A member of the RNA family "Alphaproteobacteria transfer-messenger RNA" from Aliidongia dinghuensis, 354 nucleotides long. Clan: tRNA clan. The organism belongs to Aliidongia, within Bacteria. It is annotated as a non-coding RNA gene.
RNA sequence: CCCGUUGCGCCAAGAUCGGCCGCCGCCUAUAUUCUUUCCUGUCGGGUGACCGACUAUGGCGAUAAACGGCGCGUAGAAUAGGCGUCACGGACCCGGGGGCAGUGCCCGGCGCCUCCACCAAAUCGGCCCGAGGGAACGUCCGUUCCUCGUGGCCGACCGACGGGGGCGAUCCAGCUUCGACGUGCGUAGUAAAGGCGCGACUUUUGCCCGGCAUGAUACCGCCGUUAUCGGGUCAAUCUCUAAAUGCGAACGACAACGUUGCGCAUGAGGCUCUCGCGGCCUAAUCCCUAACGGGAUGAAAGCCAUCGGGUAACUCGCGGUUCGGGGGGCACCGGGCAACAGAAGCCCCCCACU
Numbered sequence: 001c002c003c004g005u006u007g008c009g010c011c012a013a014g015a016u017c018g019g020c021c022g023c024c025g026c027c028u029a030u031a032u033u034c035u036u037u038c039c040u041g042u043c044g045g046g047u048g049a050c051c052g053a054c055u056a057u058g059g060c061g062a063u064a065a066a067c068g069g070c071g072c073g074u075a076g077a078a079u080a081g082g083c084g085u086c087a088c089g090g091a092c093c094c095g096g097g098g099g100c101a102g103u104g105c106c107c108g109g110c111g112c113c114u115c116c117a118c119c120a121a122a123u124c125g126g127c128c129c130g131a132g133g134g135a136a137c138g139u140c141c142g143u144u145c146c147u148c149g150u151g152g153c154c155g156a157c158c159g160a161c162g163g164g165g166g167c168g169a170u171c172c173a174g175c176u177u178c179g180a181c182g183u184g185c186g187u188a189g190u191a192a193a194g195g196c197g198c199g200a201c202u203u204u205u206g207c208c209c210g211g212c213a214u215g216a217u218a219c220c221g222c223c224g225u226u227a228u229c230g231g232g233u234c235a236a237u238c239u240c241u242a243a244a245u246g247c248g249a250a251c252g253a254c255a256a257c258g259u260u261g262c263g264c265a266u267g268a269g270g271c272u273c274u275c276g277c278g279g280c281c282u283a284a285u286c287c288c289u290a291a292c293g294g295g296a297u298g299a300a301a302g303c304c305a306u307c308g309g310g311u312a313a314c315u316c317g318c319g320g321u322u323c324g325g326g327g328g329g330c331a332c333c334g335g336g337c338a339a340c341a342g343a344a345g346c347c348c349c350c351c352a353c354u
Base pairs, nucleotide, nucleotide: 041054042053043052044051045050058208059207060206061205062204068201070199071198072197073196074195083186084185085184087183088182089181093109094108095107096106097105110168111167112166113165114164115163116162209224210223211222212221214235215234216233219231220230318334319333320332321331324351325350326349327348328347329346